Annotation
This 88-nucleotide RNA sequence from Devosia sp. MC521 belongs to the Rfam family "Glycine riboswitch aptamer". Its Rfam clan is "Glycine riboswitch clan". The pairing is the family consensus, mapped onto this sequence.

RNA sequence: CGGGCAACUGCGGGAGAGACUGGCUACUGCCAGCGCCGAAGGAGCAACCGCCCCGGAAACUCUCAGGCAAACGGACCGCAGUUAAACG
Numbered sequence: 001c002g003g004g005c006a007a008c009u010g011c012g013g014g015a016g017a018g019a020c021u022g023g024c025u026a027c028u029g030c031c032a033g034c035g036c037c038g039a040a041g042g043a044g045c046a047a048c049c050g051c052c053c054c055g056g057a058a059a060c061u062c063u064c065a066g067g068c069a070a071a072c073g074g075a076c077c078g079c080a081g082u083u084a085a086a087c088g
Stems, first nucleotide, its partner, number of pairs: 006083008020033004035068003038064002042062003048056002